[Rfam]
RNA sequence: CAGGCUGUGAUGAUUGGCGCAGGGGUACGGACCUCAGCUGAGUCAUGGGAGCUGAGUGUACGUGCGUCCCCCUCGUCCUGCACGUGGCAGGUCGGUGGUGAGCACUGACACGAGACAACGCCUCAAUCUGAGCCUG
Numbered sequence: 001c002a003g004g005c006u007g008u009g010a011u012g013a014u015u016g017g018c019g020c021a022g023g024g025g026u027a028c029g030g031a032c033c034u035c036a037g038c039u040g041a042g043u044c045a046u047g048g049g050a051g052c053u054g055a056g057u058g059u060a061c062g063u064g065c066g067u068c069c070c071c072c073u074c075g076u077c078c079u080g081c082a083c084g085u086g087g088c089a090g091g092u093c094g095g096u097g098g099u100g101a102g103c104a105c106u107g108a109c110a111c112g113a114g115a116c117a118a119c120g121c122c123u124c125a126a127u128c129u130g131a132g133c134c135u136g
Stems, first nucleotide, its partner, number of pairs: 001136005

Small nucleolar RNA SNORD94: a 136-nucleotide RNA from Dasypus novemcinctus. The base pairs follow the family's consensus structure, which was predicted with RNAalifold. Its family is annotated with RNA processing and nucleolus in the Gene Ontology.